This 150-nucleotide sequence from Goekera deserti belongs to the Rfam family "c-di-AMP riboswitch aptamer (ydaO/yuaA leader)". The match comes from Rfam's covariance-model search (55 bits).
RNA sequence: GUGGCCUGCACACCGAUCACCCGUGGACGGGGGCGGGGGACCCAUUUCUCGACGCGCCCGCGCGUCUCGGGGUGAAGCCGGCAGCGCCGCCGGCCGGGCACCGAUCGCCCGAACCCGACAGCUGACCCCGCAGGCGGUGGAAUCGGAGAA
Numbered sequence: 001g002u003g004g005c006c007u008g009c010a011c012a013c014c015g016a017u018c019a020c021c022c023g024u025g026g027a028c029g030g031g032g033g034c035g036g037g038g039g040a041c042c043c044a045u046u047u048c049u050c051g052a053c054g055c056g057c058c059c060g061c062g063c064g065u066c067u068c069g070g071g072g073u074g075a076a077g078c079c080g081g082c083a084g085c086g087c088c089g090c091c092g093g094c095c096g097g098g099c100a101c102c103g104a105u106c107g108c109c110c111g112a113a114c115c116c117g118a119c120a121g122c123u124g125a126c127c128c129c130g131c132a133g134g135c136g137g138u139g140g141a142a143u144c145g146g147a148g149a150a
Base pairs, nucleotide, nucleotide: 011136013134014133018032020030033131034130035129036128037127038126043069070116071115072114078093079092080091081090096110097109098108099107